Bacterial RNase P class A: a 351-nucleotide sequence from Buchnera aphidicola. The organism belongs to Buchnera aphidicola (Baizongia pistaciae), within Bacteria. The sequence is in the family's curated seed alignment.

[Rfam]
RNA sequence: GAAGCUGACCGGGCAGUCGCUGCUAUUAUGAAAAAUACAUAGAAGAGGAAAGUCCGGACUCCAAGAGGCAAAGGUACCAGAUAACAUCUGGGGAACGUAAGUUCACGACUAGUGCAACAGAAAAUAAACCGCUAAAAAUUAGAAUUAGCAAGGGUGAAAAGGUGUGGUAAAAGCACACCGAAUACUUGGUAACAAGUAUUGACUAGGUAAACUUCUACCUUGGAGCAAGGCCAAAUAAGAGUAUUCGCCCAAUUUUUAAUACUCGGGUAGGCUGCUUGAACUAAUGAGUAAUUAUUAGUCUAGAUAAAUGACUGUCAAAUACUGAACCCGGCUUAUAGGUCAGCUUCAUUA
Numbered sequence: 001g002a003a004g005c006u007g008a009c010c011g012g013g014c015a016g017u018c019g020c021u022g023c024u025a026u027u028a029u030g031a032a033a034a035a036u037a038c039a040u041a042g043a044a045g046a047g048g049a050a051a052g053u054c055c056g057g058a059c060u061c062c063a064a065g066a067g068g069c070a071a072a073g074g075u076a077c078c079a080g081a082u083a084a085c086a087u088c089u090g091g092g093g094a095a096c097g098u099a100a101g102u103u104c105a106c107g108a109c110u111a112g113u114g115c116a117a118c119a120g121a122a123a124a125u126a127a128a129c130c131g132c133u134a135a136a137a138a139u140u141a142g143a144a145u146u147a148g149c150a151a152g153g154g155u156g157a158a159a160a161g162g163u164g165u166g167g168u169a170a171a172a173g174c175a176c177a178c179c180g181a182a183u184a185c186u187u188g189g190u191a192a193c194a195a196g197u198a199u200u201g202a203c204u205a206g207g208u209a210a211a212c213u214u215c216u217a218c219c220u221u222g223g224a225g226c227a228a229g230g231c232c233a234a235a236u237a238a239g240a241g242u243a244u245u246c247g248c249c250c251a252a253u254u255u256u257u258a259a260u261a262c263u264c265g266g267g268u269a270g271g272c273u274g275c276u277u278g279a280a281c282u283a284a285u286g287a288g289u290a291a292u293u294a295u296u297a298g299u300c301u302a303g304a305u306a307a308a309u310g311a312c313u314g315u316c317a318a319a320u321a322c323u324g325a326a327c328c329c330g331g332c333u334u335a336u337a338g339g340u341c342a343g344c345u346u347c348a349u350u351a
Stems, first nucleotide, its partner, number of pairs: 001347010011336001012316007020045002023042004050334003054331004059225004067254002072220005077091005092106001093104004107215002112212002114208002129153002131149003137146003161179006180203001181200008229273004239264006251256001280299008